[Rfam]
RNA sequence: GGCAGAGUAGGAAAAGUGCGUUAAGUGCCAUAGGAUGGGAUGUUGCCUAUGGACGAAAAGAGAAUUUUCUUGCGGUACUUUUUUGCAUCCACUGUU
Numbered sequence: 001g002g003c004a005g006a007g008u009a010g011g012a013a014a015a016g017u018g019c020g021u022u023a024a025g026u027g028c029c030a031u032a033g034g035a036u037g038g039g040a041u042g043u044u045g046c047c048u049a050u051g052g053a054c055g056a057a058a059a060g061a062g063a064a065u066u067u068u069c070u071u072g073c074g075g076u077a078c079u080u081u082u083u084u085g086c087a088u089c090c091a092c093u094g095u096u
Stems, first nucleotide, its partner, number of pairs: 001096005010084009019074003025054002028052007038090005058071004
Rfam assigns this 96-nucleotide RNA from Filifactor alocis to the family "THF (Tetrahydrofolate) riboswitch aptamer". The base pairs follow the family's consensus structure, which is taken from published work. About the family: Tetrahydrofolate (THF) riboswitch was first reported for Ames et al. as an RNA motif in 5' untranslated (5'-UTR)regions of folate transport and biosynthesis genes in Firmicutes genomes.